[Rfam]
Source information: Rfam assigns this 136-nucleotide RNA sequence from Apostichopus japonicus to the family "U11 spliceosomal RNA". Lineage of the source: Eukaryota > Opisthokonta > Eumetazoa > Stichopodidae > Apostichopus. It is annotated as a spliceosomal small nuclear RNA.

RNA sequence: UAAAAGGGCCUUGAUCUACCUGCAUGAUCUACAUGACAUCCUAAUUGGGUGUUAUGUAUGGAAUCACCAGCAAGAGAUUUCAAAGGCAUAAUAUUUGUAUCCUGGGCUGAUGGCUUCCACUUGAACCAUCGCUCAC
Numbered sequence: 001u002a003a004a005a006g007g008g009c010c011u012u013g014a015u016c017u018a019c020c021u022g023c024a025u026g027a028u029c030u031a032c033a034u035g036a037c038a039u040c041c042u043a044a045u046u047g048g049g050u051g052u053u054a055u056g057u058a059u060g061g062a063a064u065c066a067c068c069a070g071c072a073a074g075a076g077a078u079u080u081c082a083a084a085g086g087c088a089u090a091a092u093a094u095u096u097g098u099a100u101c102c103u104g105g106g107c108u109g110a111u112g113g114c115u116u117c118c119a120c121u122u123g124a125a126c127c128a129u130c131g132c133u134c135a136c
Stems, first nucleotide, its partner, number of pairs: 008087005013029004030058012059082007104134004109130005115125003